[Rfam]
RNA sequence: ACCAAACUUCGGGGCGGGGUGUAAUUCCCCACCGACGGUAGGGCAACUUCAUUUGUUUGAACGUUGUCAAGCCCGUGACCCGCGAGGCGGCCAGCAGUAUCAAGGUUGUCAGACGGUGGAUCUGGUCAGAUUCCAGAGCCGACGGUUAGAGUCCGGAUGAGAGAAGUUGGUC
Number, nucleotide and partner (000 for none) at each position: 001a000002c000003c170004a000005a168006a167007c166008u165009u164010c163011g000012g000013g000014g000015c000016g000017g029018g028019g027020u000021g000022u000023a000024a000025u000026u000027c019028c018029c017030c000031a152032c151033c141034g140035a076036c075037g074038g073039u000040a000041g000042g000043g000044c000045a000046a000047c000048u000049u000050c000051a000052u000053u000054u000055g000056u000057u000058u000059g000060a000061a000062c000063g000064u000065u000066g000067u000068c000069a000070a000071g139072c138073c038074c037075g036076u035077g000078a000079c000080c116081c115082g000083c000084g000085a000086g000087g000088c000089g000090g000091c000092c000093a000094g000095c000096a000097g000098u000099a000100u000101c000102a000103a000104g000105g000106u000107u000108g000109u000110c000111a000112g000113a000114c000115g081116g080117u000118g000119g000120a000121u137122c136123u135124g134125g133126u000127c000128a000129g000130a000131u000132u000133c125134c124135a123136g122137a121138g072139c071140c034141g033142a000143c155144g154145g153146u000147u000148a000149g000150a000151g032152u031153c145154c144155g143156g000157a000158u000159g000160a000161g000162a000163g010164a009165a008166g007167u006168u005169g000170g003171u000172c000
FMN riboswitch aptamer (RFN element): a 172-nucleotide RNA sequence from Granulosicoccus antarcticus. Pairs were carried over by alignment from the consensus structure, which is taken from published work. Rfam links the family to the GO term FMN binding. The source organism's lineage runs through Bacteria, Pseudomonadati, Gammaproteobacteria, Granulosicoccaceae and Granulosicoccus antarcticus.